mir-8/mir-141/mir-200 microRNA precursor family: a 68-nucleotide RNA from Trichonephila inaurata.
The family is grouped with related families in Rfam's "mir-8 microRNA precursor clan".
The family's consensus secondary structure was predicted with RNAalifold.
Rfam 15.1 lists 2,669 matches to the family in 883 species.
[Rfam]
RNA sequence: GACGUCAUCUUACCAGGCAGUAUUAGAGUGCUAACUACCUUUUAAUACUGUCAGGUAAAGAUGUCUAC
Numbered sequence: 001g002a003c004g005u006c007a008u009c010u011u012a013c014c015a016g017g018c019a020g021u022a023u024u025a026g027a028g029u030g031c032u033a034a035c036u037a038c039c040u041u042u043u044a045a046u047a048c049u050g051u052c053a054g055g056u057a058a059a060g061a062u063g064u065c066u067a068c
Stems, first nucleotide, its partner, number of pairs: 004065001006063004010058005016052012